[Rfam]
The family of this 68-nucleotide RNA sequence from Micromonospora polyrhachis is "ASdes TB sRNA". The literature on the family includes a 2009 paper in Mol Microbiol by Arnvig and Young, "Identification of small RNAs in Mycobacterium tuberculosis". The organism belongs to Micromonospora, within Bacteria.
RNA sequence: AGCGCCACCGGGUCGACCGCCCGGGUGACGGUCAGGUAGUCGCGGAUGGCGAUCCCGUGCCGCCCCUC
Number, nucleotide and partner (000 for none) at each position: 001a000002g000003c000004g063005c062006c000007a000008c059009c000010g000011g000012g029013u028014c000015g000016a026017c025018c024019g000020c000021c000022c000023g000024g018025g017026u016027g000028a013029c012030g000031g000032u000033c000034a000035g056036g055037u000038a053039g000040u052041c051042g050043c049044g000045g000046a000047u000048g000049g043050c042051g041052a040053u038054c000055c036056c035057g000058u000059g008060c000061c000062g005063c004064c000065c000066c000067u000068c000